[Rfam]
RNA sequence: UUGGCCCGUCGCGACUGGCGCUCAGAUGGUCACCAUCGGGGAGCGACACGGUACCUCGAAACACGGAUGGAUGCGGCCGCGCGCCUGGGUCGCUACG
Numbered sequence: 001u002u003g004g005c006c007c008g009u010c011g012c013g014a015c016u017g018g019c020g021c022u023c024a025g026a027u028g029g030u031c032a033c034c035a036u037c038g039g040g041g042a043g044c045g046a047c048a049c050g051g052u053a054c055c056u057c058g059a060a061a062c063a064c065g066g067a068u069g070g071a072u073g074c075g076g077c078c079g080c081g082c083g084c085c086u087g088g089g090u091c092g093c094u095a096c097g
Stems, first nucleotide, its partner, number of pairs: 003052001005050001008047005015040002017085005026036004074092005
Dot-bracket structure: ..(.(..(((((..(([[[[[....((((...))))..))..)))))..).).....................(((((..]]]]]..))))).....